Rfam assigns this 78-nucleotide RNA sequence from Sphenodon punctatus to the family "mir-192/215 microRNA precursor family". About the family: This family represents the human microRNA (miRNA) precursors mir-192 and mir-215. On this family, see Lagos-Quintana et al., RNA 2003: "New microRNAs from mouse and human".
[Rfam]
RNA sequence: ACAGGGCUAUGACCUAUGAACUGACAGCCAGUCCUCCGGCCGUGCCUUGGCUGUCAGUUCUAUAGGGCACAGGUAUGU
Number, nucleotide and partner (000 for none) at each position: 001a078002c077003a076004g000005g074006g000007c072008u071009a000010u069011g068012a000013c066014c065015u064016a063017u000018g060019a059020a058021c057022u056023g055024a054025c053026a052027g051028c050029c049030a048031g047032u000033c000034c000035u000036c000037c000038g000039g000040c000041c000042g000043u000044g000045c000046c000047u031048u030049g029050g028051c027052u026053g025054u024055c023056a022057g021058u020059u019060c018061u000062a000063u016064a015065g014066g013067g000068c011069a010070c000071a008072g007073g000074u005075a000076u003077g002078u001
The family's consensus secondary structure was predicted with PFOLD.
The source organism's lineage runs through Eukaryota, Opisthokonta, Dipnotetrapodomorpha, Lepidosauria and Sphenodon.